[Rfam]
RNA sequence: GGAUCAAUGAUGACUUCCAUACACGGAUUCUUUGGUAAACUAAACAAAAUCAGUGAAACCACUAUACUGUCAUCCUCUUCAAACUGAGGCCC
Numbered sequence: 001g002g003a004u005c006a007a008u009g010a011u012g013a014c015u016u017c018c019a020u021a022c023a024c025g026g027a028u029u030c031u032u033u034g035g036u037a038a039a040c041u042a043a044a045c046a047a048a049a050u051c052a053g054u055g056a057a058a059c060c061a062c063u064a065u066a067c068u069g070u071c072a073u074c075c076u077c078u079u080c081a082a083a084c085u086g087a088g089g090c091c092c
Stems, first nucleotide, its partner, number of pairs: 001092002004089002027054003032047003
Shown here is a 92-nucleotide RNA from Callithrix jacchus, a member of the family "Small nucleolar RNA SNORD116". The match comes from Rfam's covariance-model search (77 bits). The source organism's lineage runs through Eukaryota, Craniata, Tetrapoda, Amniota and Callithrix. The family's consensus secondary structure was predicted with PFOLD. On this family, see Cavaille et al., Proc Natl Acad Sci U S A 2000: "Identification of brain-specific and imprinted small nucleolar RNA genes exhibiting an unusual genomic organization". Rfam classes the family as a C/D-box small nucleolar RNA.